[Rfam]
RNA: nrdJ RNA
Organism: Streptomyces sp. SAJ15
RNA sequence: ACCUGCCCGGGCGCCGCCGUGCGCGUGGGCGACAGAACAGAACACCGUGCCAAGGAAGAAUUUGGCACAUCAGGGCGUU
Numbered sequence: 001a002c003c004u005g006c007c008c009g010g011g012c013g014c015c016g017c018c019g020u021g022c023g024c025g026u027g028g029g030c031g032a033c034a035g036a037a038c039a040g041a042a043c044a045c046c047g048u049g050c051c052a053a054g055g056a057a058g059a060a061u062u063u064g065g066c067a068c069a070u071c072a073g074g075g076c077g078u079u
Stems, first nucleotide, its partner, number of pairs: 004031006012023003047068006053061001